[Rfam]
RNA sequence: GGCCCAGUGGCCUAAUGGACAAGGCAUCAGCCUCCGGAGCUGGGGAUUGUGGGUUCGAGUCCCACCUGGGUCG
Numbered sequence: 001g002g003c004c005c006a007g008u009g010g011c012c013u014a015a016u017g018g019a020c021a022a023g024g025c026a027u028c029a030g031c032c033u034c035c036g037g038a039g040c041u042g043g044g045g046a047u048u049g050u051g052g053g054u055u056c057g058a059g060u061c062c063c064a065c066c067u068g069g070g071u072c073g
Base pairs, nucleotide, nucleotide: 001072002071003070004069005068006067007066010025011024012023013022027043028042029041030040031039049065050064051063052062053061
A member of the RNA family "tRNA" from Gallus gallus, 73 nucleotides long. It scores 63 bits against the family's covariance model. The base pairs follow the family's consensus structure, which is taken from published work. The family's RNA type in Rfam is transfer RNA. Rfam's curators write: Transfer RNA (tRNA) molecules are approximately 80 nucleotides in length.